RNA sequence: GUGAAGUUGAUCACAUACAAACAUAUACCCCUUUGUUUGACCGUGAAAAAUUUCUCCCAUCCCCUUUGUUCGUAAAAUGGAAACCCCUGGCUAUGCCAGGGGUUUCUU
Numbered sequence: 001g002u003g004a005a006g007u008u009g010a011u012c013a014c015a016u017a018c019a020a021a022c023a024u025a026u027a028c029c030c031c032u033u034u035g036u037u038u039g040a041c042c043g044u045g046a047a048a049a050a051u052u053u054c055u056c057c058c059a060u061c062c063c064c065u066u067u068g069u070u071c072g073u074a075a076a077a078u079g080g081a082a083a084c085c086c087c088u089g090g091c092u093a094u095g096c097c098a099g100g101g102g103u104u105u106c107u108u
Base pairs, nucleotide, nucleotide: 003054004053005052006051007050008049011046012045013044014043018039019038020037021036022035023034070077081105082104083103084102085101086100087099088098089097090096091095
This 108-nucleotide RNA sequence from Falsibacillus pallidus belongs to the Rfam family "RNA Staph. aureus E (RoxS)".
It is annotated as a small RNA.
Rfam's curators write: It was shown to be regulated by the presence of nitric oxide (NO).
Rfam links the family to the GO term regulation of translational initiation.
Lineage of the source: Bacteria > Bacilli > Caryophanales > Bacillaceae > Falsibacillus.
The match comes from Rfam's covariance-model search (106 bits).